This 72-nucleotide RNA from Nomascus leucogenys belongs to the Rfam family "mir-3689 microRNA precursor family". Gene Ontology terms of the family: RISC complex and miRNA-mediated post-transcriptional gene silencing. Pairs were carried over by alignment from the consensus structure, which was predicted with RNAalifold.
RNA sequence: AGGAGGUGUGAUCCCGCGCUCACUGGGAAGUAUGAUCCCGCGCUCCCUGGGAGGUGUGAUCCUGUGCUUCCU
Number, nucleotide and partner (000 for none) at each position: 001a000002g070003g069004a068005g067006g000007u000008g000009u000010g000011a000012u000013c000014c000015c058016g057017c056018g055019c000020u053021c000022a000023c050024u049025g048026g047027g046028a000029a044030g000031u042032a000033u040034g039035a000036u000037c000038c000039c034040g033041c000042g031043c000044u029045c000046c027047c026048u025049g024050g023051g000052a000053g020054g000055u018056g017057u016058g015059a000060u000061c000062c000063u000064g000065u000066g000067c005068u004069u003070c002071c000072u000